Background
Rfam assigns this 192-nucleotide sequence from Pseudomonas sp. M30-35 to the family "Pseudomonas sRNA P27". It is annotated as a small RNA.

RNA sequence: CGGGUAAAACUCCUGCUUGUUACCGUUUCAUCUGGCCGAAGCCGGAUGUCGUUUUGGUGUCUGAUUCGGUAAAGAACCGGGAGCACCAUCUGCGUAGGUUUUCCUGUUUAAGGCUUGCGCCACCUACGGUCUUGGAUAGCCCCCGCCAGGCAGGGACCCCAAUUUUUGCAAACGAGCGUGAAAUUCACGCCC
Number, nucleotide and partner (000 for none) at each position: 001c000002g159003g158004g157005u156006a000007a000008a000009a000010c000011u000012c150013c149014u148015g147016c000017u000018u000019g000020u000021u000022a000023c000024c051025g050026u000027u000028u000029c048030a047031u046032c045033u044034g043035g042036c041037c000038g000039a000040a000041g036042c035043c034044g033045g032046a031047u030048g029049u000050c025051g024052u000053u000054u000055u088056g087057g086058u085059g084060u083061c080062u079063g078064a000065u076066u075067c074068g000069g000070u000071a000072a000073a000074g067075a066076a065077c000078c063079g062080g061081g000082a000083g060084c059085a058086c057087c056088a055089u000090c000091u000092g146093c145094g144095u000096a000097g141098g140099u139100u138101u000102u000103c000104c000105u000106g137107u136108u135109u134110a133111a132112g131113g130114c129115u128116u000117g000118c000119g000120c000121c000122a000123c000124c000125u000126a000127c000128g115129g114130u113131c112132u111133u110134g109135g108136a107137u106138a100139g099140c098141c097142c000143c000144c094145g093146c092147c015148a014149g013150g012151c000152a000153g000154g000155g000156a005157c004158c003159c002160c000161a000162a000163u000164u000165u000166u000167u000168g000169c000170a000171a000172a000173c000174g000175a000176g190177c189178g188179u187180g186181a000182a000183a000184u000185u000186c180187a179188c178189g177190c176191c000192c000